About this RNA: L31-Actinobacteria ribosomal protein leader: a 52-nucleotide RNA from Actinokineospora auranticolor. The source organism's lineage runs through Bacteria, Bacillati, Pseudonocardiales, Pseudonocardiaceae and Actinokineospora.

RNA sequence: CCGGCACCGGUUCACCUCCGUCGAGAGCCAUCGACGCGAGGACCCGGCGGCC
Numbered sequence: 001c002c003g004g005c006a007c008c009g010g011u012u013c014a015c016c017u018c019c020g021u022c023g024a025g026a027g028c029c030a031u032c033g034a035c036g037c038g039a040g041g042a043c044c045c046g047g048c049g050g051c052c
Stems, first nucleotide, its partner, number of pairs: 003052003007047004015041004019036006